[Rfam]
RNA: mir-631 microRNA precursor family
RNA sequence: GGGCACCUGGUAGACCUGGCCCAGCCCUCAGCUAGCUCAGCUGAUGGACUGAGCCAGGGGGCCAAGUUCCC
Numbered sequence: 001g002g003g004c005a006c007c008u009g010g011u012a013g014a015c016c017u018g019g020c021c022c023a024g025c026c027c028u029c030a031g032c033u034a035g036c037u038c039a040g041c042u043g044a045u046g047g048a049c050u051g052a053g054c055c056a057g058g059g060g061g062c063c064a065a066g067u068u069c070c071c
Stems, first nucleotide, its partner, number of pairs: 001071003005067001008064004015058006022051003026047002028044006